[Rfam]
RNA sequence: AACUCAUCAAGAGUGGUGGAGGGACUGGCCCUAUGAAACCCGGCAACCGUCAUAUUUUUAUGAAAAUGGUGCUAAUUCCUGCAAAGCGUUUAGCUUUGGGAGAUGAGAA
Numbered sequence: 001a002a003c004u005c006a007u008c009a010a011g012a013g014u015g016g017u018g019g020a021g022g023g024a025c026u027g028g029c030c031c032u033a034u035g036a037a038a039c040c041c042g043g044c045a046a047c048c049g050u051c052a053u054a055u056u057u058u059u060a061u062g063a064a065a066a067u068g069g070u071g072c073u074a075a076u077u078c079c080u081g082c083a084a085a086g087c088g089u090u091u092a093g094c095u096u097u098g099g100g101a102g103a104u105g106a107g108a109a
Base pairs, nucleotide, nucleotide: 003107004106005105006104007103008102013041015040016039017038021031022030023029025081027079028078042073043072044071045070047069048068050063051062052061077101082098083097084096085095086094087093